[Rfam]
RNA sequence: GCGGAAGUGGUGAAAUUGGCAGACACACCAUCUUGAGGGGGUGGCGCCGAGAGGCAUGGGGGUUCAAGUCCCCCCUUCCGCA
Number, nucleotide and partner (000 for none) at each position: 001g081002c080003g079004g078005a077006a076007g075008u000009g000010g026011u025012g024013a000014a000015a000016u000017u000018g000019g000020c000021a000022g000023a000024c012025a011026c010027a000028c044029c043030a042031u041032c040033u000034u000035g000036a000037g000038g000039g000040g032041g031042u030043g029044g028045c000046g000047c000048c000049g000050a000051g000052a000053g000054g000055c000056a000057u000058g074059g073060g072061g071062g070063u000064u000065c000066a000067a000068g000069u000070c062071c061072c060073c059074c058075c007076u006077u005078c004079c003080g002081c001082a000
RNA: tRNA
Organism: Alloacidobacterium dinghuense